[Rfam]
RNA sequence: CUCACGGUCCAGUUUUCCCAGGAAUCCCUUGGAUGCUAAGAUGGGGAUUCCUGGAAAUACUGUUCUUGAG
Numbered sequence: 001c002u003c004a005c006g007g008u009c010c011a012g013u014u015u016u017c018c019c020a021g022g023a024a025u026c027c028c029u030u031g032g033a034u035g036c037u038a039a040g041a042u043g044g045g046g047a048u049u050c051c052u053g054g055a056a057a058u059a060c061u062g063u064u065c066u067u068g069a070g
Base pairs, nucleotide, nucleotide: 010062011061012060013059015057016056018054019053020052021051022050023049024048025047026046027045028044029043
RNA: mir-145 microRNA precursor family
Organism: Mus musculus